[Rfam]
RNA: Bacterial RNase P class A
Nucleotides: 378
Base pairs, nucleotide, nucleotide: 001374002373003372004371005370006369007368008367009366010365011363012325013324014323015322016321017320018319020041021040023038024037025036026035027034028033046361047360048359050358051357052356053355054354055226056225057224058223062260063259064258065257067222068221069220070219071218072086073085074084075083076082087101088099089098090097091096102217103216107215108214109211110210111209124157126153127152128151133148134147135146136145137144165183166182167181168180169179170178185207186205187204188203189202190201191200192199193198230282231281232280233279240273241272242271243270244269245268252264253263254262255261289308290307291306292305293304294303295302296301
Number, partner (000 for none) and nucleotide at each position: 001374g002373a003372a004371g005370u006369a007368a008367a009366c010365c011363g012325g013324a014323u015322g016321a017320u018319c019000g020041c021040c022000g023038u024037c025036c026035c027034g028033c029000g030000c031000c032000a033028g034027c035026g036025g037024g038023a039000g040021g041020g042000a043000g044000g045000a046361a047360a048359g049000u050358c051357c052356g053355g054354g055226c056225u057224c058223c059000a060000c061000a062260g063259g064258g065257c066000a067222g068221g069220a070219u071218a072086c073085u074084c075083c076082g077000u078000a079000a080000c081000g082076c083075g084074g085073a086072g087101u088099g089098g090097g091096g092000g093000c094000g095000a096091c097090c098089u099088u100000a101087a102217g103216g104000a105000a106000a107215g108214u109211g110210c111209c112000a113000c114000a115000g116000a117000a118000a119000a120000c121000a122000a123000a124157c125000g126153g127152c128151c129000c130000a131000c132000c133148c134147g135146c136145g137144g138000g139000g140000c141000g142000a143000c144137c145136c146135g147134c148133g149000g150000c151128g152127g153126c154000a155000a156000a157124g158000g159000u160000g161000a162000a163000a164000a165183g166182g167181u168180g169179g170178g171000g172000u173000a174000a175000g176000a177000g178170c179169c180168c181167a182166c183165c184000a185207g186205u187204g188203c189202c190201g191200c192199c193198g194000g195000u196000g197000a198193c199192g200191g201190c202189g203188g204187c205186a206000g207185c208000u209111g210110g211109c212000a213000a214108a215107c216103c217102c218071u219070a220069u221068c222067c223058g224057g225056a226055g227000c228000a229000a230282g231281a232280u233279c234000a235000a236000a237000u238000a239000g240273g241272a242271a243270a244269g245268c246000g247000c248000u249000u250000g251000a252264g253263g254262g255261c256000g257065g258064c259063c260062c261255g262254u263253c264252c265000g266000a267000u268245g269244c270243u271242u272241u273240c274000g275000g276000g277000u278000u279233g280232a281231u282230c283000g284000c285000u286000c287000g288000a289308g290307c291306c292305u293304g294303c295302c296301g297000g298000c299000a300000a301296c302295g303294g304293c305292a306291g307290g308289c309000c310000u311000a312000g313000a314000u315000u316000g317000a318000u319018g320017a321016u322015c323014a324013u325012c326000g327000c328000u329000c330000c331000g332000u333000g334000c335000u336000c337000c338000g339000g340000c341000a342000c343000g344000g345000a346000g347000a348000a349000c350000a351000g352000a353000a354054c355053c356052c357051g358050g359048c360047u361046u362000a363011c364000a365010g366009g367008u368007u369006u370005a371004c372003u373002u374001c375000u376000u377000g378000c